[Rfam]
RNA sequence: AAUCGAAUACGACUCCGAGCCGGAGGACCUAAAGGUCUUCCCACGGUUAUCCGGCCUAUGGGUAUUCUUGGAAACGAGAAUGCCUCCCGUGUUUGGAAAGGAGAUGCGUUCAUUCGCUG
Dot-bracket structure: .....(....(.((((..((((((.((((....((....))...)))).))))))....(((((((((((....)))))))))))((.......))...)))).)....).........

Molybdenum/Tungsten riboswitch aptamer (Moco RNA motif): a 119-nucleotide RNA from Aminithiophilus ramosus. On this family, see Weinberg et al., Nucleic Acids Res 2007: "Identification of 22 candidate structured RNAs in bacteria using the CMfinder comparative genomics pipeline". Taxonomically the source falls in Aminithiophilus (Bacteria, Thermotogati, Synergistota, Synergistia). Its family is annotated with tungstate binding, molybdenum ion binding and regulation of gene expression in the Gene Ontology.